A member of the RNA family "Purine riboswitch aptamer" from Bacillus sp. B-jedd, 102 nucleotides long.
NCBI's taxonomy places the organism under Bacteria, Bacillati, Bacillota, Bacilli, Bacillus.
The base pairs follow the family's consensus structure, which is taken from published work.
Riboswitches are metabolite binding domains within certain messenger RNAs that serve as precision sensors for their corresponding targets. Allosteric rearrangement of mRNA structure is mediated by ligand binding, and this results in modulation of gene expression.
[Rfam]
RNA sequence: AGCCUUACUUUUAAUAUCACUCGUAUAAUGGCAGGGAUAUGGCCUGCAAGUUUCUACCGGAUUACCGUAAAUGAUCCGACUAUGGGUGGCGAUGGAUGGAUG
Numbered sequence: 001a002g003c004c005u006u007a008c009u010u011u012u013a014a015u016a017u018c019a020c021u022c023g024u025a026u027a028a029u030g031g032c033a034g035g036g037a038u039a040u041g042g043c044c045u046g047c048a049a050g051u052u053u054c055u056a057c058c059g060g061a062u063u064a065c066c067g068u069a070a071a072u073g074a075u076c077c078g079a080c081u082a083u084g085g086g087u088g089g090c091g092a093u094g095g096a097u098g099g100a101u102g
Stems, first nucleotide, its partner, number of pairs: 018088008029049001031047005058078007